A member of the RNA family "Purine riboswitch aptamer" from Pontibacillus halophilus, 102 nucleotides long.
Its Rfam clan is "Purine riboswitches".
It scores 86 bits against the family's covariance model.

RNA sequence: CACACACAUAUAUAUUUUCCUUGUAUAAGUUUGAGAAUACGGCUCAAACGUCUCUACUAAGCUACCGUAAAUGGCUUAUCUACAAGGGAUAUUCGUAUAGAA
Numbered sequence: 001c002a003c004a005c006a007c008a009u010a011u012a013u014a015u016u017u018u019c020c021u022u023g024u025a026u027a028a029g030u031u032u033g034a035g036a037a038u039a040c041g042g043c044u045c046a047a048a049c050g051u052c053u054c055u056a057c058u059a060a061g062c063u064a065c066c067g068u069a070a071a072u073g074g075c076u077u078a079u080c081u082a083c084a085a086g087g088g089a090u091a092u093u094c095g096u097a098u099a100g101a102a
Stems, first nucleotide, its partner, number of pairs: 018088008029049007058078007